Rfam assigns this 67-nucleotide sequence to the family "DUF3800-VIII RNA".
RNA sequence: AAUGCCCCGCAUUUCUCGAAGGCUUACGCUCCUGCGUAGGGUAUUCAUGUAGGGAGUGUGGGGCGAU
Numbered sequence: 001a002a003u004g005c006c007c008c009g010c011a012u013u014u015c016u017c018g019a020a021g022g023c024u025u026a027c028g029c030u031c032c033u034g035c036g037u038a039g040g041g042u043a044u045u046c047a048u049g050u051a052g053g054g055a056g057u058g059u060g061g062g063g064c065g066a067u
Base pairs, nucleotide, nucleotide: 001067003065004064005063006062007061008060009059010058011057012056013055015054016053017052021042023040024039025038026037027036028035029034

About the family: Bacteroidetes, Cyanobacteria, Firmicutes, Planctomycetes (1 example), Proteobacteria, Tenericutes (1 example).